Alphaproteobacterial sRNA BjrC1505: a 135-nucleotide RNA sequence from Methyloligella sp. GL2. It scores 85 bits against the family's covariance model. By type it is a small RNA.
[Rfam]
RNA sequence: AGGAUUAACAACUUAUUAGGGAUUUAGCCUUAACGUUCCCCUUAUCCAGUCCUCUGGAUCGGAGUGGCCCCAACCACUCUGUUUGACGCCUCCCUGUUAACUUCCUGAGCCGCCCGUCGAGGCGGCUCUUUUUUU
Numbered sequence: 001a002g003g004a005u006u007a008a009c010a011a012c013u014u015a016u017u018a019g020g021g022a023u024u025u026a027g028c029c030u031u032a033a034c035g036u037u038c039c040c041c042u043u044a045u046c047c048a049g050u051c052c053u054c055u056g057g058a059u060c061g062g063a064g065u066g067g068c069c070c071c072a073a074c075c076a077c078u079c080u081g082u083u084u085g086a087c088g089c090c091u092c093c094c095u096g097u098u099a100a101c102u103u104c105c106u107g108a109g110c111c112g113c114c115c116g117u118c119g120a121g122g123c124g125g126c127u128c129u130u131u132u133u134u135u
Stems, first nucleotide, its partner, number of pairs: 001037001013033001017032005045058004062079006085098004107128008
A reference for the family is Madhugiri et al. (2012), "Small RNAs of the Bradyrhizobium/Rhodopseudomonas lineage and their analysis", RNA Biol.